[Rfam]
RNA sequence: GGGGACCUUCGGGGCCCUAUAACCAUCGGCAGACACCGGCCUUCAAAAGCCAUCUCUGCCGCACAGCUAAACGGAAGACAGACA
Numbered sequence: 001g002g003g004g005a006c007c008u009u010c011g012g013g014g015c016c017c018u019a020u021a022a023c024c025a026u027c028g029g030c031a032g033a034c035a036c037c038g039g040c041c042u043u044c045a046a047a048a049g050c051c052a053u054c055u056c057u058g059c060c061g062c063a064c065a066g067c068u069a070a071a072c073g074g075a076a077g078a079c080a081g082a083c084a
Stems, first nucleotide, its partner, number of pairs: 001018004006014003028060005
The record is an 84-nucleotide sequence from Sulfitobacter noctilucicola, which matches "L2-Alphaproteobacteria ribosomal protein leader" in Rfam. Lineage of the source: Bacteria > Pseudomonadati > Rhodobacterales > Roseobacteraceae > Sulfitobacter. It is one of the family's seed sequences. The base pairs follow the family's consensus structure, which is taken from published work.